This 133-nucleotide RNA from Drosophila rhopaloa belongs to the Rfam family "Small nucleolar RNA psi28S-3316".
RNA sequence: UGCACCUAAAAGCGUUUUCUUGCUAGCCUGUUAAAUGCUCUUGAAAAUCGUAGAUGUGUGCAAAAGCAAUAUUUACAAUAGCAAAGGAUUUGGGUUCUCGGAAAACUCUAAUCCAUUUAUAUUGGAAACAAUU
Dot-bracket structure: ((((((.....((((((((..((.(..........)))....))))).)))....).)))))..........((.((((...(((.((((..((((.......))))..))).).)))..)))).))......
The family has 33 seed sequences and 85 matches in Rfam 15.1.
Pairs were carried over by alignment from the consensus structure, which was predicted with RNAfold.
psi28S-3316 is a member of the H/ACA class of snoRNA. This family is responsible for guiding the modification of uridine 3316 in Drosophila 28S rRNA to pseudouridine.
A search with the family's covariance model found it, with a score of 133 bits.
Rfam classes the family as an H/ACA-box small nucleolar RNA.